[Rfam]
RNA sequence: CCUUAAAUUCCUAAAGCAGCAAAUAAUGAUUCGCAUCUUUAUCAGAGUGUGCAAAUCAUGAUGUGCUGCUAAAGUACUUUAAGG
Numbered sequence: 001c002c003u004u005a006a007a008u009u010c011c012u013a014a015a016g017c018a019g020c021a022a023a024u025a026a027u028g029a030u031u032c033g034c035a036u037c038u039u040u041a042u043c044a045g046a047g048u049g050u051g052c053a054a055a056u057c058a059u060g061a062u063g064u065g066c067u068g069c070u071a072a073a074g075u076a077c078u079u080u081a082a083g084g
Base pairs, nucleotide, nucleotide: 001084002083003082004081005080006079015070016069017068018067019066020065021064023062024061026059027058028057029056030055031054033052034051035050036049
RNA: mir-15 microRNA precursor family